[Rfam]
RNA sequence: GGCUCAGCUCUUGCUAAAGAAUUAUCACAGGUAGCCAACGGCGGUUGCCCCUCCACGACAAAGACGUCGC
Numbered sequence: 001g002g003c004u005c006a007g008c009u010c011u012u013g014c015u016a017a018a019g020a021a022u023u024a025u026c027a028c029a030g031g032u033a034g035c036c037a038a039c040g041g042c043g044g045u046u047g048c049c050c051c052u053c054c055a056c057g058a059c060a061a062a063g064a065c066g067u068c069g070c
Stems, first nucleotide, its partner, number of pairs: 030049007
Background: This 70-nucleotide sequence from Pseudomonas fluorescens belongs to the Rfam family "narK RNA". Lineage of the source: Bacteria > Gammaproteobacteria > Pseudomonadales > Pseudomonadaceae > Pseudomonas fluorescens. Rfam's curators put it in the seed alignment. By type it is a cis-regulatory element.